Rfam assigns this 497-nucleotide part of an RNA from Methanoregula boonei to the family "Archaeal small subunit ribosomal RNA". Clan: SSU clan. For this family Rfam cites "Crystal structure of the ribosome at 5.5 A resolution" (Yusupov et al., Science, 2001). A search with the family's covariance model found it, with a score of 1579 bits.
[Rfam]
RNA sequence: AUUCUGGUUGAUCCUGCCAGAGGCCACUGCUAUCGGAGUUCGAUUAAGCCAUGCGAGUCGAGAGGUGUAAGACCUCGGCAUACUGCUCAGUAACACGUGGACAACCUACCCUGAAGAGGGGGAUAACCCCGGGAAACUGGGGAUAAUACCCCAUAGGCUAUGGAUGCUGGAAUGCUCUGUAGUUGAAAGGUCCGCCGCUUCAGGAUGGGUCUGCGGCCGAUUAGGUUGUUGUUGGGGUAACGGCCCAACAAGCCUGUAAUCGGUACGGGUUGUGGGAGCAAGAGCCCGGAGAUGGAUUCUGAGACACGAAUCCAGGCCCUACGGGGCGCAGCAGGCGCGAAAACUUUGCAAUGCGAGAAAUCGUGACAAGGGAACUCCGAGUGCCUGUAAAAUCAGGCUGUCCGUCAGUGUAAAUAACUGGCGAAGAAAGGGCCGGGCAAGACCGGUGCCAGCCGCCGCGGUAAUACCGGCGGCUCGAGUGGUGGCCACUAUUACUG
Numbered sequence: 001a002u003u004c005u006g007g008u009u010g011a012u013c014c015u016g017c018c019a020g021a022g023g024c025c026a027c028u029g030c031u032a033u034c035g036g037a038g039u040u041c042g043a044u045u046a047a048g049c050c051a052u053g054c055g056a057g058u059c060g061a062g063a064g065g066u067g068u069a070a071g072a073c074c075u076c077g078g079c080a081u082a083c084u085g086c087u088c089a090g091u092a093a094c095a096c097g098u099g100g101a102c103a104a105c106c107u108a109c110c111c112u113g114a115a116g117a118g119g120g121g122g123a124u125a126a127c128c129c130c131g132g133g134a135a136a137c138u139g140g141g142g143a144u145a146a147u148a149c150c151c152c153a154u155a156g157g158c159u160a161u162g163g164a165u166g167c168u169g170g171a172a173u174g175c176u177c178u179g180u181a182g183u184u185g186a187a188a189g190g191u192c193c194g195c196c197g198c199u200u201c202a203g204g205a206u207g208g209g210u211c212u213g214c215g216g217c218c219g220a221u222u223a224g225g226u227u228g229u230u231g232u233u234g235g236g237g238u239a240a241c242g243g244c245c246c247a248a249c250a251a252g253c254c255u256g257u258a259a260u261c262g263g264u265a266c267g268g269g270u271u272g273u274g275g276g277a278g279c280a281a282g283a284g285c286c287c288g289g290a291g292a293u294g295g296a297u298u299c300u301g302a303g304a305c306a307c308g309a310a311u312c313c314a315g316g317c318c319c320u321a322c323g324g325g326g327c328g329c330a331g332c333a334g335g336c337g338c339g340a341a342a343a344c345u346u347u348g349c350a351a352u353g354c355g356a357g358a359a360a361u362c363g364u365g366a367c368a369a370g371g372g373a374a375c376u377c378c379g380a381g382u383g384c385c386u387g388u389a390a391a392a393u394c395a396g397g398c399u400g401u402c403c404g405u406c407a408g409u410g411u412a413a414a415u416a417a418c419u420g421g422c423g424a425a426g427a428a429a430g431g432g433c434c435g436g437g438c439a440a441g442a443c444c445g446g447u448g449c450c451a452g453c454c455g456c457c458g459c460g461g462u463a464a465u466a467c468c469g470g471c472g473g474c475u476c477g478a479g480u481g482g483u484g485g486c487c488a489c490u491a492u493u494a495c496u497g
Stems, first nucleotide, its partner, number of pairs: 004020005022487010033380009042338001048336003052333003057079003062076005086291003096215007105208002110204007118152004127142006157183008166175002189196002217263003224254003229251008266288004270281004293314006316327004344370001346369003352365005383398005403423007430476006443470004452459002
Rfam 15.1 lists 709 matches to the family in 491 species.